The record is an 87-nucleotide RNA sequence from Gossypium armourianum, which matches "MIR7486 microRNA precursor family" in Rfam. Gene Ontology terms of the family: RISC complex and miRNA-mediated post-transcriptional gene silencing.
[Rfam]
RNA sequence: CUUGAGGAAGCAUUUUGCUUACGUGGAUAGAAAUCGCUCCCUUAAGGAGGCGCUUUAUGUCCAAGUAGGCAAAAUGCUUCCUCAUGG
Numbered sequence: 001c002u003u004g005a006g007g008a009a010g011c012a013u014u015u016u017g018c019u020u021a022c023g024u025g026g027a028u029a030g031a032a033a034u035c036g037c038u039c040c041c042u043u044a045a046g047g048a049g050g051c052g053c054u055u056u057a058u059g060u061c062c063a064a065g066u067a068g069g070c071a072a073a074a075u076g077c078u079u080c081c082u083c084a085u086g087g
Stems, first nucleotide, its partner, number of pairs: 001086001003084019024063006031056003035052004040047002